[Rfam]
Nucleotides: 049
Base pairs, nucleotide, nucleotide: 001020005016006015007014008013036049037048038047039046040045
Number, partner (000 for none) and nucleotide at each position: 001020c002000a003000c004000a005016g006015a007014g008013g009000a010000c011000g012000a013008c014007c015006u016005c017000c018000c019000c020001g021000a022000u023000a024000u025000g026000g027000g028000u029000a030000g031000a032000u033000u034000g035000g036049c037048c038047g039046g040045g041000a042000c043000g044000a045040c046039c047038c048037g049036g
A member of the RNA family "Guanidine-II riboswitch aptamer (mini-ykkC)" from Paracoccus caeni, 49 nucleotides long. Pairs were carried over by alignment from the consensus structure, which is taken from published work. The match comes from Rfam's covariance-model search (33 bits).